mir-24 microRNA precursor family: a 69-nucleotide sequence from Mastacembelus armatus. The organism belongs to Mastacembelus, within Eukaryota. Rfam's curators write: This family represents the microRNA (miRNA) mir-24 family. miRNAs are transcribed as ~70nt precursors (modelled here) and subsequently processed by the Dicer enzyme to give a ~22nt product. In this case the mature sequence comes from the 3' arm of the precursor. The extents of the hairpin precursors are not generally known and are estimated based on hairpin prediction. The products are thought to have regulatory roles through complementarity to mRNA. The involvement of Dicer in miRNA processing suggests a relationship with the phenomenon of RNA interference. miRNAs are numbered based on the sequence of the mature RNA. miR-24 has been identified in human and mouse. The base pairs follow the family's consensus structure, which was predicted with RNAalifold.
RNA sequence: CCCUCUUGUGCCUUCUGAACUGACAGCAGUUUCAUUCAAUGCACUGGCUCAGUUCAGCAGGAACAGGAG
Numbered sequence: 001c002c003c004u005c006u007u008g009u010g011c012c013u014u015c016u017g018a019a020c021u022g023a024c025a026g027c028a029g030u031u032u033c034a035u036u037c038a039a040u041g042c043a044c045u046g047g048c049u050c051a052g053u054u055c056a057g058c059a060g061g062a063a064c065a066g067g068a069g
Stems, first nucleotide, its partner, number of pairs: 003069004008064002011061003015057009027046004